[Rfam]
RNA sequence: GUGCUGUGAUGAUCACUUAUCAACACAUCAUUCUUAAUGUAAUGUGAAGAAUUCUCAAUCACUGAGCACA
Dot-bracket structure: ((((.............................................................)))).
This 70-nucleotide RNA sequence from Chanos chanos belongs to the Rfam family "Small nucleolar RNA SNORD63". Rfam classes the family as a C/D-box small nucleolar RNA. The literature on the family includes a 2002 paper in Mol Cell Biol by Galardi et al., "Purified box C/D snoRNPs are able to reproduce site-specific 2'-O-methylation of target RNA in vitro". Pairs were carried over by alignment from the consensus structure, which was predicted with PFOLD. Rfam's curators write: snoRNA U63 is found in both humans and mice. It scores 59 bits against the family's covariance model. Lineage of the source: Eukaryota > Metazoa > Teleostomi > Euteleostomi > Chanos.